Rfam assigns this 145-nucleotide sequence from Tetracentron sinense to the family "Small nucleolar RNA snoR136". For this family Rfam cites "Mining small RNA sequencing data: a new approach to identify small nucleolar RNAs in Arabidopsis" (Chen and Wu, Nucleic Acids Res, 2009). It is annotated as an H/ACA-box small nucleolar RNA. Rfam 15.1 lists 452 matches to the family in 212 species. Gene Ontology terms of the family: nucleolus and RNA processing. The organism belongs to Tetracentron, within Eukaryota.
RNA sequence: GUGGCUUUGCGUUGUUGAUUUAAUCAGCUGAGGCUGCUAGAUUCGAUCGAUUCUAGUGGCCUUGUUUAAGUGAAGCCAUAUCAAUGUUCCCCUCGCUAUCCAGUGUAGUGUUUAUGCUGCAUUUGGACGUUGGGGAACUACAUUU
Numbered sequence: 001g002u003g004g005c006u007u008u009g010c011g012u013u014g015u016u017g018a019u020u021u022a023a024u025c026a027g028c029u030g031a032g033g034c035u036g037c038u039a040g041a042u043u044c045g046a047u048c049g050a051u052u053c054u055a056g057u058g059g060c061c062u063u064g065u066u067u068a069a070g071u072g073a074a075g076c077c078a079u080a081u082c083a084a085u086g087u088u089c090c091c092c093u094c095g096c097u098a099u100c101c102a103g104u105g106u107a108g109u110g111u112u113u114a115u116g117c118u119g120c121a122u123u124u125g126g127a128c129g130u131u132g133g134g135g136a137a138c139u140a141c142a143u144u145u
Base pairs, nucleotide, nucleotide: 001079002078003077004076005075008072009071010070030063031062032061033060034059035058036057037056041054086138087137088136089135090134091133092132094129095128099127100126101125102124103123108117109116110115